A member of the RNA family "TPP riboswitch aptamer (THI element)" from Syntrophobacter fumaroxidans, 98 nucleotides long. Pairs were carried over by alignment from the consensus structure, which is taken from published work. The source organism's lineage runs through Bacteria, Syntrophobacteria, Syntrophobacterales, Syntrophobacter and Syntrophobacter fumaroxidans.
RNA sequence: CAACAGCCGGGGGGGUGCUCUCCAAAGGGAGAGCUGAGAUGAUACCCUUGGAACCUGAUCCAGAUCAUACUGGCGGAGGAAUCGGCGAACGGGAUACA
Numbered sequence: 001c002a003a004c005a006g007c008c009g010g011g012g013g014g015g016u017g018c019u020c021u022c023c024a025a026a027g028g029g030a031g032a033g034c035u036g037a038g039a040u041g042a043u044a045c046c047c048u049u050g051g052a053a054c055c056u057g058a059u060c061c062a063g064a065u066c067a068u069a070c071u072g073g074c075g076g077a078g079g080a081a082u083c084g085g086c087g088a089a090c091g092g093g094a095u096a097c098a
Base pairs, nucleotide, nucleotide: 006086007085008084009083010082011048012047013046014045016042017034018033019032020031021030054079055078056077060073061072062071063070